[Rfam]
RNA sequence: UUACCGUCACAACGGCUUCCUGGCGUGAUGGCUCGGUAUUAAUGGAGCG
Numbered sequence: 001u002u003a004c005c006g007u008c009a010c011a012a013c014g015g016c017u018u019c020c021u022g023g024c025g026u027g028a029u030g031g032c033u034c035g036g037u038a039u040u041a042a043u044g045g046a047g048c049g
Base pairs, nucleotide, nucleotide: 004031005030006029007028008027009026010025013022014021015048016047017046019045020044